A member of the RNA family "Archaeal large subunit ribosomal RNA" from Candidatus Methanoperedens nitratireducens, 447 nucleotides of a longer RNA. The match comes from Rfam's covariance-model search (2916 bits). Lineage of the source: Archaea > Methanobacteriota > Methanomicrobia > Methanosarcinales > Candidatus Methanoperedens.
RNA sequence: CCUUCCGAAACAUGUCGCAGCAUGACCUUGCCAGAGGCUGUCGGCGGAGUAGAGCACUGAUUGGGGAAUCCUGGGGGGAAACCCCUAGCUCUCCUGUCAAACUCCAAAACCGCCGUCGUCGUAGAAGGCAGGAGUCCGCACUGGUGGGUAAGCUAACAGUGCGUGAGGGAGACAACCCAGACCGUGGUUAAGGUCCCAGAGUAUCGGCUAAGUGUAAACACAAAAAGGGUGUCCCAAGCCCUAGACAACUGGAAGGUGAGCUCAGAAGCAGCUAUCCUUUAAAGAGUGCGUAACAGCUCACCAGUCGAGGUUUGGGGCCCCGAAAAUGGACGGGGCUCAAGCCGAUCACCGAUACCACGGGGCACCGAAAGGUGAUCCUGUAGGAAGGCGUCUCGUAUGGGUAGAAGCAGGGUCGUGAGAUCCUGUGGACCAUGCGGGAACGAAAAU
Numbered sequence: 001c002c003u004u005c006c007g008a009a010a011c012a013u014g015u016c017g018c019a020g021c022a023u024g025a026c027c028u029u030g031c032c033a034g035a036g037g038c039u040g041u042c043g044g045c046g047g048a049g050u051a052g053a054g055c056a057c058u059g060a061u062u063g064g065g066g067a068a069u070c071c072u073g074g075g076g077g078g079a080a081a082c083c084c085c086u087a088g089c090u091c092u093c094c095u096g097u098c099a100a101a102c103u104c105c106a107a108a109a110c111c112g113c114c115g116u117c118g119u120c121g122u123a124g125a126a127g128g129c130a131g132g133a134g135u136c137c138g139c140a141c142u143g144g145u146g147g148g149u150a151a152g153c154u155a156a157c158a159g160u161g162c163g164u165g166a167g168g169g170a171g172a173c174a175a176c177c178c179a180g181a182c183c184g185u186g187g188u189u190a191a192g193g194u195c196c197c198a199g200a201g202u203a204u205c206g207g208c209u210a211a212g213u214g215u216a217a218a219c220a221c222a223a224a225a226a227g228g229g230u231g232u233c234c235c236a237a238g239c240c241c242u243a244g245a246c247a248a249c250u251g252g253a254a255g256g257u258g259a260g261c262u263c264a265g266a267a268g269c270a271g272c273u274a275u276c277c278u279u280u281a282a283a284g285a286g287u288g289c290g291u292a293a294c295a296g297c298u299c300a301c302c303a304g305u306c307g308a309g310g311u312u313u314g315g316g317g318c319c320c321c322g323a324a325a326a327u328g329g330a331c332g333g334g335g336c337u338c339a340a341g342c343c344g345a346u347c348a349c350c351g352a353u354a355c356c357a358c359g360g361g362g363c364a365c366c367g368a369a370a371g372g373u374g375a376u377c378c379u380g381u382a383g384g385a386a387g388g389c390g391u392c393u394c395g396u397a398u399g400g401g402u403a404g405a406a407g408c409a410g411g412g413u414c415g416u417g418a419g420a421u422c423c424u425g426u427g428g429a430c431c432a433u434g435c436g437g438g439a440a441c442g443a444a445a446a447u
Base pairs, nucleotide, nucleotide: 001388002387003386004385005384006383011024012023013022014021015020026134027132028131029130030129031128032127036120037119038118040117042115043114044113045112046111047110052105053103054102059098060097061096063094064093065092066091067090072087073086074085075084076083077082138162139161140160141159142158143157145155146154167178168177169176182360183359184358185357186356187355188354192350193349194348201347203346204345205344206343207342208341227321228320229319231318232317233316234315235314236313237312238311239310240309248305249304250303251302252301254278255277256276259273260272261271279283284299288297289296361378362377363374364373365372366371389442391439392438393437394436395435396434397433398432399431400430407426408425409424410423411422412421413420414419